[Rfam]
RNA sequence: CCGCGACGAUCUGGAAAGCGGCCGGGCCCUUCGGGGCACGUCCCACCGAAGGGGUAAGCGGCGGCGCUCGUGCGUCGUCGUGAAAGCUCUCAGGUCAGGGUGACAGGUGGGGGCAU
Number, nucleotide and partner (000 for none) at each position: 001c000002c000003g000004c000005g000006a000007c110008g000009a108010u107011c106012u105013g104014g000015a000016a000017a000018g000019c000020g043021g042022c000023c040024g000025g000026g000027c000028c000029c000030u000031u000032c000033g000034g000035g000036g000037c000038a000039c000040g023041u000042c021043c020044c000045a095046c094047c093048g091049a090050a000051g000052g089053g088054g087055u000056a000057a000058g000059c000060g000061g000062c000063g000064g000065c000066g000067c000068u000069c000070g000071u000072g000073c000074g000075u000076c000077g000078u000079c000080g000081u000082g000083a000084a000085a000086g000087c054088u053089c052090u049091c048092a000093g047094g046095u045096c000097a000098g000099g000100g000101u000102g000103a000104c013105a012106g011107g010108u009109g000110g007111g000112g000113g000114c000115a000116u000
RNA: Glycine riboswitch aptamer